[Rfam]
RNA sequence: UACCCCGUUCGAUGUUCUGAUUAAUUUUGUUGUAGUAACGGUUCGCCAAAACCGCUGAUUGAUUAACACUCAAUAAAUCUACCACACAAUUUCUAGUUAGCUCUGAGAACGGGUUUUUUG
Numbered sequence: 001u002a003c004c005c006c007g008u009u010c011g012a013u014g015u016u017c018u019g020a021u022u023a024a025u026u027u028u029g030u031u032g033u034a035g036u037a038a039c040g041g042u043u044c045g046c047c048a049a050a051a052c053c054g055c056u057g058a059u060u061g062a063u064u065a066a067c068a069c070u071c072a073a074u075a076a077a078u079c080u081a082c083c084a085c086a087c088a089a090u091u092u093c094u095a096g097u098u099a100g101c102u103c104u105g106a107g108a109a110c111g112g113g114u115u116u117u118u119u120g
Base pairs, nucleotide, nucleotide: 004113005112006111007110008109009108014103017100018099019098020097021096023092024091025088027086029085030084032082033081034080035079039054040053041052042051043050056076058074059073060072061071
RNA: MtlS RNA